[Rfam]
Shown here is a 138-nucleotide RNA from Rhodohalobacter sp. SW132, a member of the family "c-di-AMP riboswitch aptamer (ydaO/yuaA leader)".
RNA sequence: ACCUUAAGAUUGCCUAAUCACUCAGUAAUGAGUGAGCGGAGGACCCAAUUAUUUGGGGUGAAUUCUGAGCAAUCAGUUAGGGCGAGUUCUCUCAGCCCGAACCCGACAGCUAACUUCGCAGGCUUCGAGAGAAGACAA
Number, nucleotide and partner (000 for none) at each position: 001a000002c000003c000004u000005u000006a000007a000008g000009a000010u000011u000012g123013c122014c121015u000016a000017a000018u035019c034020a033021c032022u031023c030024a029025g000026u000027a000028a000029u024030g023031a022032g021033u020034g019035a018036g119037c118038g117039g116040a115041g114042g000043a000044c000045c000046c055047a054048a000049u000050u000051a000052u000053u000054u047055g046056g104057g103058g102059u000060g000061a000062a000063u000064u000065c076066u075067g074068a000069g000070c000071a000072a000073u000074c067075a066076g065077u000078u000079a000080g098081g097082g096083c095084g000085a000086g000087u000088u000089c000090u000091c000092u000093c000094a000095g083096c082097c081098c080099g000100a000101a000102c058103c057104c056105g000106a000107c000108a000109g000110c000111u000112a000113a000114c041115u040116u039117c038118g037119c036120a000121g014122g013123c012124u000125u000126c000127g000128a000129g000130a000131g000132a000133a000134g000135a000136c000137a000138a000

This family represents a conserved RNA structure found upstream of the ydaO and yuaA genes in Bacillus subtilis and related genes in other bacteria. The ydaO/yuaA element is thought to act as a genetic 'off' switch for the ydaO and yuaA genes in its native state. It is believed that the element may be triggered during osmotic shock leading to activation of ydaO, a predicted amino acid transporter gene, and members of the yuaA-yubG operon which code for KtrA and KtrB K+ transporters.